Description: Shown here is an 83-nucleotide sequence from Saimiri boliviensis, a member of the family "mir-548 microRNA precursor family". A reference for the family is Witten et al. (2010), "Ultra-high throughput sequencing-based small RNA discovery and discrete statistical biomarker analysis in a collection of cervical tumours and matched controls", BMC Biol. Rfam links the family to the GO terms RISC complex and miRNA-mediated post-transcriptional gene silencing. It scores 91 bits against the family's covariance model.
[Rfam]
RNA sequence: UAUUAAGCUGGUGCAAAAGUGAUUGCAGUUUUUGCCAUUGAAAGUAAUGGCAAAAACUGCAAUCACUUUUGCACCAGCCUAUA
Numbered sequence: 001u002a003u004u005a006a007g008c009u010g011g012u013g014c015a016a017a018a019g020u021g022a023u024u025g026c027a028g029u030u031u032u033u034g035c036c037a038u039u040g041a042a043a044g045u046a047a048u049g050g051c052a053a054a055a056a057c058u059g060c061a062a063u064c065a066c067u068u069u070u071g072c073a074c075c076a077g078c079c080u081a082u083a
Stems, first nucleotide, its partner, number of pairs: 001083002004081002007078034